A member of the RNA family "Small Cajal body specific RNA 8" from Cotesia typhae, 133 nucleotides long. scaRNAs are a specific class of small nuclear RNAs which localise to the Cajal bodies and guide the modification of RNA polymerase II transcribed spliceosomal RNAs U1, U2, U4, U5 and U12. U92 belong to the H/ACA box class of guide RNAs as it has the predicted hairpin-hinge-hairpin-tail structure, conserved H/ACA-box motifs and is found associated with GAR1. By type it is a small Cajal body RNA. NCBI's taxonomy places the organism under Eukaryota, Eumetazoa, Allotriocarida, Microgastrinae, Cotesia. The family's consensus secondary structure is taken from published work.
[Rfam]
RNA sequence: UGGAAGAAUGAUACUCUAAAAAUAUAAAGUUUUAAUUUUUCGACACAAAAUCUUCCUAAAAAAAAUUUAAUAGCUUUACGAUGACUGUAAAUUGUGAAGAAAUAAUUUAUAGACAGAUACGGAGCUUACAAUU
Number, nucleotide and partner (000 for none) at each position: 001u000002g056003g055004a054005a053006g052007a051008a000009u000010g000011a000012u000013a000014c000015u043016c042017u000018a040019a000020a000021a000022a036023u035024a000025u000026a000027a000028a000029g000030u000031u000032u000033u000034a000035a023036u022037u000038u000039u000040u018041c000042g016043a015044c000045a000046c000047a000048a000049a000050a000051u007052c006053u005054u004055c003056c002057u000058a000059a000060a000061a000062a000063a000064a000065a000066u000067u000068u000069a000070a000071u000072a126073g125074c124075u123076u122077u121078a000079c000080g000081a000082u000083g000084a000085c112086u111087g110088u000089a000090a107091a106092u105093u104094g000095u000096g000097a000098a000099g000100a000101a000102a000103u000104a093105a092106u091107u090108u000109a000110u087111a086112g085113a000114c000115a000116g000117a000118u000119a000120c000121g077122g076123a075124g074125c073126u072127u000128a000129c000130a000131a000132u000133u000